[Rfam]
RNA sequence: CGCGUGUCCCGACCACCCCCCAUUGCCGGGACACUGCGCGGCGGCAUCCCAUUCCCCCCGAUGGGAUGCCGCCCCCU
Numbered sequence: 001c002g003c004g005u006g007u008c009c010c011g012a013c014c015a016c017c018c019c020c021c022a023u024u025g026c027c028g029g030g031a032c033a034c035u036g037c038g039c040g041g042c043g044g045c046a047u048c049c050c051a052u053u054c055c056c057c058c059c060g061a062u063g064g065g066a067u068g069c070c071g072c073c074c075c076c077u
Base pairs, nucleotide, nucleotide: 002039003038004034005033006032007031008030009029010028011027013025040073041072042071043070044069045068046067047066048065049064050063051062052061
The family of this 77-nucleotide sequence from Microbacterium aurum is "6C RNA". It is annotated as a cis-regulatory element. On this family, see Weinberg et al., Nucleic Acids Res 2007: "Identification of 22 candidate structured RNAs in bacteria using the CMfinder comparative genomics pipeline". Its family is annotated with sporulation in the Gene Ontology. The source organism's lineage runs through Bacteria, Actinomycetota, Actinomycetes, Microbacteriaceae and Microbacterium. The match comes from Rfam's covariance-model search (49 bits).